A member of the RNA family "Bacteroidete tryptophan peptide leader RNA" from Flavobacterium soyangense, 120 nucleotides long.
RNA sequence: UAUAUUUGUGGCAAGAAAUUAUGAAAACAAUUACAAACAAUACUUGGUGGUGGAACAAUUUACGUCAGUCGUCGUGAACUAAGCUCCUAUAGUAUAAACUAUAAAUAUAAAAGGCUUGUC
Numbered sequence: 001u002a003u004a005u006u007u008g009u010g011g012c013a014a015g016a017a018a019u020u021a022u023g024a025a026a027a028c029a030a031u032u033a034c035a036a037a038c039a040a041u042a043c044u045u046g047g048u049g050g051u052g053g054a055a056c057a058a059u060u061u062a063c064g065u066c067a068g069u070c071g072u073c074g075u076g077a078a079c080u081a082a083g084c085u086c087c088u089a090u091a092g093u094a095u096a097a098a099c100u101a102u103a104a105a106u107a108u109a110a111a112a113g114g115c116u117u118g119u120c
Base pairs, nucleotide, nucleotide: 036100040095041094042093043092044091047088049087050086052084057080059078060077061076062072063071064070
Pairs were carried over by alignment from the consensus structure, which is taken from published work. The family's RNA type in Rfam is cis-regulatory leader.